The record is a 77-nucleotide sequence from Megalops atlanticus, which matches "mir-196 microRNA precursor family" in Rfam. Pairs were carried over by alignment from the consensus structure, which was predicted with PFOLD. Rfam links the family to the GO terms gene silencing by miRNA and RISC complex. A search with the family's covariance model found it, with a score of 69 bits.
[Rfam]
RNA sequence: ACUGUGAUUUAGGUAGUUUCAUGUUGUUGUGCCGAAUGUUUAAUGUCACAGGAACCUGAAACUACCUGAAUUACUUC
Number, nucleotide and partner (000 for none) at each position: 001a000002c000003u000004g074005u073006g072007a071008u070009u069010u068011a067012g066013g065014u064015a063016g062017u061018u060019u059020c000021a000022u000023g055024u054025u053026g000027u051028u050029g049030u048031g047032c000033c000034g000035a000036a000037u000038g000039u000040u000041u000042a000043a000044u000045g000046u000047c031048a030049c029050a028051g027052g000053a025054a024055c023056c000057u000058g000059a019060a018061a017062c016063u015064a014065c013066c012067u011068g010069a009070a008071u007072u006073a005074c004075u000076u000077c000